[Rfam]
RNA sequence: GAAUAUCGCCGGGCUUUAUCCUCCUCCCAAAGCUCCCGCGAUCGAAGGCCGGCCCUCCUCCUCCCAGCCGGUCUUUACAAAACGACACCCACCGCACCUCCUCCCGCGGUGGGUGUUGUUG
Number, nucleotide and partner (000 for none) at each position: 001g000002a000003a000004u000005a000006u000007c040008g039009c038010c000011g036012g035013g033014c032015u031016u030017u000018a000019u000020c000021c000022u000023c000024c000025u000026c000027c000028c000029a000030a016031a015032g014033c013034u000035c012036c011037c000038g009039c008040g007041a000042u000043c000044g076045a075046a074047g073048g072049c071050c070051g069052g068053c067054c000055c000056u000057c000058c000059u000060c000061c000062u000063c000064c000065c000066a000067g053068c052069c051070g050071g049072u048073c047074u046075u045076u044077a000078c000079a000080a000081a000082a000083c000084g000085a116086c115087a114088c113089c112090c111091a110092c109093c108094g107095c106096a000097c000098c000099u000100c000101c000102u000103c000104c000105c000106g095107c094108g093109g092110u091111g090112g089113g088114u087115g086116u085117u000118g000119u000120u000121g000
This 121-nucleotide RNA sequence from Phyllobacterium endophyticum belongs to the Rfam family "Alphaproteobacterial ar14". The match comes from Rfam's covariance-model search (106 bits). Gene Ontology term of the family: biological process involved in symbiotic interaction. Pairs were carried over by alignment from the consensus structure. For this family Rfam cites "A survey of sRNA families in alpha-proteobacteria" (del Val et al., RNA Biol, 2012). Taxonomically the source falls in Phyllobacterium (Bacteria, Pseudomonadota, Alphaproteobacteria, Hyphomicrobiales). From the family's description: Smr14C2 was renamed NfeR1 (Nodule Formation Efficiency RNA) highly expressed in salt stress and during the symbiotic interaction on legume roots. It is annotated as a small RNA.